[Rfam]
RNA sequence: GGGGCCGGGGAUGUCCCUCCGUCGGCGUAAUGCGCUCACGGGGGCUUUUGGU
Numbered sequence: 001g002g003g004g005c006c007g008g009g010g011a012u013g014u015c016c017c018u019c020c021g022u023c024g025g026c027g028u029a030a031u032g033c034g035c036u037c038a039c040g041g042g043g044g045c046u047u048u049u050g051g052u
Stems, first nucleotide, its partner, number of pairs: 016044007025035004
A member of the RNA family "ffh sRNA" from Aquisalinus flavus, 52 nucleotides long. A reference for the family is Meyer et al. (2009), "Identification of candidate structured RNAs in the marine organism 'Candidatus Pelagibacter ubique'", BMC Genomics. Rfam classes the family as a small RNA. The family's consensus secondary structure is taken from published work.